[Rfam]
About this RNA:
The family of this 64-nucleotide RNA sequence from Trypanosoma conorhini is "Selenocysteine insertion sequence 1". It is annotated as a cis-regulatory element. A search with the family's covariance model found it, with a score of 38 bits.
RNA sequence: UUUUUUUCUAUGACGCUGACGGAAUAAACCCCUCGAGGGAGUCCGUCAGCUGAAGUUACACACA
Number, nucleotide and partner (000 for none) at each position: 001u064002u000003u062004u000005u060006u000007u000008c000009u000010a000011u000012g000013a000014c000015g050016c049017u048018g047019a046020c045021g044022g043023a042024a000025u000026a000027a000028a000029c000030c039031c038032c037033u000034c000035g000036a000037g032038g031039g030040a000041g000042u023043c022044c021045g020046u019047c018048a017049g016050c015051u000052g000053a000054a000055g000056u000057u000058a000059c000060a005061c000062a003063c000064a001